The family of this 85-nucleotide RNA from Galium aparine is "Plastid-rps12 3UTR RNA". The family's RNA type in Rfam is cis-regulatory element. Rfam 15.1 lists 1,710 matches to the family in 1,426 species.

RNA sequence: GUUUCUCUCGAUCCAAAUCCAAUCAAGAUGAGAAGCAAUUUUCCAUUGGUAACAAAAGGUUAUCCAUUAAGCGGAGUAAAGCUUA
Numbered sequence: 001g002u003u004u005c006u007c008u009c010g011a012u013c014c015a016a017a018u019c020c021a022a023u024c025a026a027g028a029u030g031a032g033a034a035g036c037a038a039u040u041u042u043c044c045a046u047u048g049g050u051a052a053c054a055a056a057a058g059g060u061u062a063u064c065c066a067u068u069a070a071g072c073g074g075a076g077u078a079a080a081g082c083u084u085a
Stems, first nucleotide, its partner, number of pairs: 008022001010020001041076004045067002048064006